[Rfam]
Notes:
The record is a 129-nucleotide sequence from Nannospalax galili, which matches "Small nucleolar RNA SNORA51" in Rfam. Rfam classes the family as an H/ACA-box small nucleolar RNA. NCBI's taxonomy places the organism under Eukaryota, Craniata, Gnathostomata, Euteleostomi, Nannospalax. Its family is annotated with nucleolus and RNA processing in the Gene Ontology. ACA51 is a member of the H/ACA class of snoRNA that guide the sites of modification of uridines to pseudouridines. The family has 9 seed sequences and 2,121 matches in Rfam 15.1.

RNA sequence: GGCCUUAUGAUGCUUAACACAGGUUGUGUUCUUAUACUAAUUGCAUAGGAGGAGGUAGGGCAUACCUGACCCAUGUACACCUCAGCCCAUGAAACUGUGCCUGGUCUGUAUUGUGAAGGGGAGACAUGA
Numbered sequence: 001g002g003c004c005u006u007a008u009g010a011u012g013c014u015u016a017a018c019a020c021a022g023g024u025u026g027u028g029u030u031c032u033u034a035u036a037c038u039a040a041u042u043g044c045a046u047a048g049g050a051g052g053a054g055g056u057a058g059g060g061c062a063u064a065c066c067u068g069a070c071c072c073a074u075g076u077a078c079a080c081c082u083c084a085g086c087c088c089a090u091g092a093a094a095c096u097g098u099g100c101c102u103g104g105u106c107u108g109u110a111u112u113g114u115g116a117a118g119g120g121g122a123g124a125c126a127u128g129a
Base pairs, nucleotide, nucleotide: 002056003055004054005053006052008050020043021042022041026037027036028035029034070121071120072119074117083108084107085106087104088103089102091100